[Rfam]
Nucleotides: 099
Stems, first nucleotide, its partner, number of pairs: 001098007010025003027061005075091005
Number, partner (000 for none) and nucleotide at each position: 001098g002097a003096c004095a005094a006093c007092g008000u009000g010025c011024c012023a013000g014000a015000g016000u017000g018000g019000u020000u021000a022000a023012u024011g025010g026000g027061u028060a029059u030058g031057a032000c033000u034000c035000g036000a037000a038000c039000g040000a041000c042000c043000a044000c045000a046000u047000c048000u049000a050000c051000u052000a053000g054000a055000u056000a057031u058030c059029a060028u061027a062000u063000g064000c065000c066000u067000u068000c069000g070000g071000g072000c073000g074000c075091g076090c077089a078088g079087g080000u081000u082000c083000g084000a085000a086000u087079c088078c089077u090076g091075c092007c093006g094005u095004u096003g097002u098001c099000g
A member of the RNA family "tRNA" from Paraphoma chrysanthemicola, 99 nucleotides long. The source organism's lineage runs through Eukaryota, Ascomycota, Pleosporales, Phaeosphaeriaceae and Paraphoma. Its family is annotated with triplet codon-amino acid adaptor activity in the Gene Ontology. Pairs were carried over by alignment from the consensus structure, which is taken from published work. The match comes from Rfam's covariance-model search (50 bits). On this family, see Hou, Trends Biochem Sci 1993: "The tertiary structure of tRNA and the development of the genetic code".